[Rfam]
RNA sequence: GUGAAUGUGAGGAGUGAUUAGCAAAACAGCUCUUGGAGUCGAAACAAGGAAAGACGCCCAAGGGCUUUUUGCUUUU
Numbered sequence: 001g002u003g004a005a006u007g008u009g010a011g012g013a014g015u016g017a018u019u020a021g022c023a024a025a026a027c028a029g030c031u032c033u034u035g036g037a038g039u040c041g042a043a044a045c046a047a048g049g050a051a052a053g054a055c056g057c058c059c060a061a062g063g064g065c066u067u068u069u070u071g072c073u074u075u076u
Base pairs, nucleotide, nucleotide: 022071023070024069025068026067030064031063035059036058038055039054040053
RNA: Cyano-1 RNA
Organism: Acaryochloris thomasi